[Rfam]
RNA sequence: CGCAUUGGCCAACAGCUGCUAUUAAAGUAGAGGAAAGUCCACGCUAGCACUUUCUGCGAUGAAAGUAGUGUUCAUGCUAAGCCCAAUAAGCUUAGGCCUAGACGACUAGUGCCACAGAGACGAGAAUUGUGAAACGCGGUAAACUCCAUGAGCUAGAAACCCAAAUUUUGGUAGGGGAAUUUUCUCGAGAGAAUUGAAUCAAGAGAGAAAACCAGUUUACUGGUUAGAUAAAUUGUUGGCACCUUAUUAUUUUUAAGGGACAAAACGUGGCUUAUAGAU
Dot-bracket structure: ...(((((((((((.(((((.....)))))....[[[.[[[[[(((((((((((......)))))).....(((((((((((.......))))))((...).)((...(((((........................)))..))))))))))))))...(((...........)))...(((((((................)))))))((((((....))))))........))))))).(((((.......))))).......]]]]]]]].).)))
A member of the RNA family "Bacterial RNase P class B" from Mycoplasma miroungigenitalium, 279 nucleotides long. Taxonomically the source falls in Mycoplasma (Bacteria, Bacillati, Mycoplasmatales, Mycoplasmataceae). A search with the family's covariance model found it, with a score of 224 bits. Ribonuclease P (RNase P) is a ubiquitous endoribonuclease, found in archaea, bacteria and eukarya as well as chloroplasts and mitochondria. Its best characterised activity is the generation of mature 5'-ends of tRNAs by cleaving the 5'-leader elements of precursor-tRNAs. Cellular RNase Ps are ribonucleoproteins. The family is grouped with related families in Rfam's "RNaseP clan". Pairs were carried over by alignment from the consensus structure, which is taken from published work.